[Rfam]
RNA sequence: GAAACGCGAACCAAGCAGCCGCCCACUGGUGGCGUGAGACUUGGAGCUGGCCUCGGCAACGAGACCAUGCA
Numbered sequence: 001g002a003a004a005c006g007c008g009a010a011c012c013a014a015g016c017a018g019c020c021g022c023c024c025a026c027u028g029g030u031g032g033c034g035u036g037a038g039a040c041u042u043g044g045a046g047c048u049g050g051c052c053u054c055g056g057c058a059a060c061g062a063g064a065c066c067a068u069g070c071a
Base pairs, nucleotide, nucleotide: 011044012043013042014041015040018033019032020031021030022029048067049066050065052063053062054061055060
RNA: Transposase-2 RNA